T-box leader: a 257-nucleotide RNA sequence from Clostridium sp. CAG:299.
Rfam classes the family as a cis-regulatory leader.
The base pairs follow the family's consensus structure, which is taken from published work.
Uncharged tRNA acts as the effector for transcription antitermination of genes in the T-box leader family. T-boxes are found upstream of many aminoacyl-tRNA synthetase genes and some amino acid biosynthetic genes usually in Gram-positive bacteria. The anticodon of a specific tRNA base pairs to a specifier sequence within the T-box motif, and the NCCA acceptor tail of the tRNA base pairs to a conserved bulge in the T-box antiterminator hairpin.
RNA sequence: UAAAUGGCUGUGAAGAGGCCCAGUAGAUUCUGACACACUUCCAGAGAGGGGGCGGAUGGUGGGACGUCCCUGUGUCACUCAGGAUUGAACCUUCCUCGGAGCUGUGCAUGAGGCAGCAGGAGAUGAAGCAGAUGAUUGAUGUAAAGUUUCCUCUGCGAAAGUGCAACGUAUUCCGGCGUUAACGGAGCGAGAGAGAACCGGCACGUCCGGUUAAUCAGGGUGGUACCGCCGAUAGUGCAGACUGUUCGGUCCCUAUG
Numbered sequence: 001u002a003a004a005u006g007g008c009u010g011u012g013a014a015g016a017g018g019c020c021c022a023g024u025a026g027a028u029u030c031u032g033a034c035a036c037a038c039u040u041c042c043a044g045a046g047a048g049g050g051g052g053c054g055g056a057u058g059g060u061g062g063g064a065c066g067u068c069c070c071u072g073u074g075u076c077a078c079u080c081a082g083g084a085u086u087g088a089a090c091c092u093u094c095c096u097c098g099g100a101g102c103u104g105u106g107c108a109u110g111a112g113g114c115a116g117c118a119g120g121a122g123a124u125g126a127a128g129c130a131g132a133u134g135a136u137u138g139a140u141g142u143a144a145a146g147u148u149u150c151c152u153c154u155g156c157g158a159a160a161g162u163g164c165a166a167c168g169u170a171u172u173c174c175g176g177c178g179u180u181a182a183c184g185g186a187g188c189g190a191g192a193g194a195g196a197a198c199c200g201g202c203a204c205g206u207c208c209g210g211u212u213a214a215u216c217a218g219g220g221u222g223g224u225a226c227c228g229c230c231g232a233u234a235g236u237g238c239a240g241a242c243u244g245u246u247c248g249g250u251c252c253c254u255a256u257g
Stems, first nucleotide, its partner, number of pairs: 007102002015097004026086006037075002048071006105165005167178003196212006217254004228250005